[Rfam]
RNA sequence: CGAGUUGGCCGGGCGGCCGCGGCCCCUGCUGGUCAGCCAGCCGGGGUCGAGGAAAGUCCGGACUUCACAGAGCAGGGUGAUUGCUAACGGCAAUCCGGGGUGACCCGCGGGAAAGUGCCACAGAAAGCAGACCGCUACCUGGUAGUAAGGGUGAAACGGUGCGGUAAGAGCGCACCAGCGUCCCGGGUGACCGGGACGGCUCGGCAAACCCCACCCGAAGCAAGGCCAAGAAGGCCGCAGCCGCGCUGCGGCCGCGCAGAUGUUCGAGGGUUGCUCGCCCGAGUCUGCGGGUAGGCCGCUCGAGGCACCCGGCGACGGUGUGCCCAGAUGGAUGGUCGCCGCCGCGCCGCCGUAUUGCGGGGGUGCGGAACAGAAUCCGGCUUACAGGCCAACUCGUCCG
Numbered sequence: 001c002g003a004g005u006u007g008g009c010c011g012g013g014c015g016g017c018c019g020c021g022g023c024c025c026c027u028g029c030u031g032g033u034c035a036g037c038c039a040g041c042c043g044g045g046g047u048c049g050a051g052g053a054a055a056g057u058c059c060g061g062a063c064u065u066c067a068c069a070g071a072g073c074a075g076g077g078u079g080a081u082u083g084c085u086a087a088c089g090g091c092a093a094u095c096c097g098g099g100g101u102g103a104c105c106c107g108c109g110g111g112a113a114a115g116u117g118c119c120a121c122a123g124a125a126a127g128c129a130g131a132c133c134g135c136u137a138c139c140u141g142g143u144a145g146u147a148a149g150g151g152u153g154a155a156a157c158g159g160u161g162c163g164g165u166a167a168g169a170g171c172g173c174a175c176c177a178g179c180g181u182c183c184c185g186g187g188u189g190a191c192c193g194g195g196a197c198g199g200c201u202c203g204g205c206a207a208a209c210c211c212c213a214c215c216c217g218a219a220g221c222a223a224g225g226c227c228a229a230g231a232a233g234g235c236c237g238c239a240g241c242c243g244c245g246c247u248g249c250g251g252c253c254g255c256g257c258a259g260a261u262g263u264u265c266g267a268g269g270g271u272u273g274c275u276c277g278c279c280c281g282a283g284u285c286u287g288c289g290g291g292u293a294g295g296c297c298g299c300u301c302g303a304g305g306c307a308c309c310c311g312g313c314g315a316c317g318g319u320g321u322g323c324c325c326a327g328a329u330g331g332a333u334g335g336u337c338g339c340c341g342c343c344g345c346g347c348c349g350c351c352g353u354a355u356u357g358c359g360g361g362g363g364u365g366c367g368g369a370a371c372a373g374a375a376u377c378c379g380g381c382u383u384a385c386a387g388g389c390c391a392a393c394u395c396g397u398c399c400g
Stems, first nucleotide, its partner, number of pairs: 001396010011385001012340007020049007028041004054383003058380005063220004070276004075216005080094005095109001096107004110211002115209002117205003132150002134146005158176006178200001179198008224297004234288002237285001268280004304324005309318003

A member of the RNA family "Bacterial RNase P class A" from Mycobacterium triviale, 400 nucleotides long. Rfam's curators write: Ribonuclease P (RNase P) is a ubiquitous endoribonuclease, found in archaea, bacteria and eukarya as well as chloroplasts and mitochondria. Taxonomically the source falls in Mycobacterium (subgen. Mycolicibacillus) (Bacteria, Actinomycetota, Mycobacteriales, Mycobacterium). Rfam classes the family as a ribozyme.